[Rfam]
RNA sequence: UUAUAGAAGUCCCGGAAAGCGGAUGUGCAGAUUGCAGAUUUAUCUGCAUAGAUGCACAUACAUUUGACGGGCUGACACAUAUGAGCAAGAAGGACGACAGGACGCAUUGCGAAUGUGUGUGCGAUUGCGGGAGUACUCAGUACGGAGCAAUCGACUUCUAUAA
Numbered sequence: 001u002u003a004u005a006g007a008a009g010u011c012c013c014g015g016a017a018a019g020c021g022g023a024u025g026u027g028c029a030g031a032u033u034g035c036a037g038a039u040u041u042a043u044c045u046g047c048a049u050a051g052a053u054g055c056a057c058a059u060a061c062a063u064u065u066g067a068c069g070g071g072c073u074g075a076c077a078c079a080u081a082u083g084a085g086c087a088a089g090a091a092g093g094a095c096g097a098c099a100g101g102a103c104g105c106a107u108u109g110c111g112a113a114u115g116u117g118u119g120u121g122c123g124a125u126u127g128c129g130g131g132a133g134u135a136c137u138c139a140g141u142a143c144g145g146a147g148c149a150a151u152c153g154a155c156u157u158c159u160a161u162a163a
Base pairs, nucleotide, nucleotide: 001163002162003161004160005159006158007157011071012070013069014068018064019063021061023059024058025057026056027055028054029053032050034047035046036045037044038043075120076119077118078117079116080115081114082113085110086109087108088107092103095100122153123152124151125150126149127148128147133143134142135141136140
Shown here is a 163-nucleotide RNA from Blautia sp. CAG:257, a member of the family "Clostridiales-1 RNA". The family has 194 seed sequences and 1,172 matches in Rfam 15.1. Pairs were carried over by alignment from the consensus structure, which is taken from published work.